RNA sequence: UGCCCACCUUCGGGUUAAGGCCAUACGGACAGCCGGGGCAACUGCCGA
Number, nucleotide and partner (000 for none) at each position: 001u040002g039003c038004c037005c036006a015007c014008c013009u000010u000011c000012g000013g008014g007015u006016u000017a000018a000019g000020g000021c000022c000023a000024u000025a000026c000027g000028g000029a000030c000031a000032g000033c000034c000035g000036g005037g004038g003039c002040a001041a000042c000043u000044g000045c000046c000047g000048a000
RNA: Streptococcus sRNA SpF59 (ldcC RNA)